[Rfam]
RNA sequence: CUCGUUGAUGAAGUUUUCUCGAUUGUUCUGGUCCAUCUCUAUUUUUGUGAUGGACCAAUACAACCGCGAACCCGUCAUCAUCGCCU
Numbered sequence: 001c002u003c004g005u006u007g008a009u010g011a012a013g014u015u016u017u018c019u020c021g022a023u024u025g026u027u028c029u030g031g032u033c034c035a036u037c038u039c040u041a042u043u044u045u046u047g048u049g050a051u052g053g054a055c056c057a058a059u060a061c062a063a064c065c066g067c068g069a070a071c072c073c074g075u076c077a078u079c080a081u082c083g084c085c086u
Base pairs, nucleotide, nucleotide: 003083004082006080007079008078009077010076011075013073016070017069018068020066021065023063024062025061026060029057030056031055032054033053034052035051036050037049039047

Record summary
mir-4887 microRNA precursor family: an 86-nucleotide RNA sequence from Branchiostoma floridae. The base pairs follow the family's consensus structure, which was predicted with RNAalifold. The organism belongs to Branchiostoma, within Eukaryota. Rfam links the family to the GO terms RISC complex and miRNA-mediated post-transcriptional gene silencing.